[Rfam]
RNA sequence: AUUUGACGCGGAAAAGCUAUAUAUAGGUUAUAUUAUAACCUAUAUAUAGCUUUUCCGCGUCAAAU
Number, nucleotide and partner (000 for none) at each position: 001a000002u000003u063004u062005g061006a060007c059008g000009c057010g056011g055012a000013a053014a052015a000016g000017c049018u048019a047020u046021a045022u000023a000024u042025a041026g040027g039028u000029u000030a000031u000032a000033u000034u000035a000036u000037a000038a000039c027040c026041u025042a024043u000044a000045u021046a020047u019048a018049g017050c000051u000052u014053u013054u000055c011056c010057g009058c000059g007060u006061c005062a004063a003064a000065u000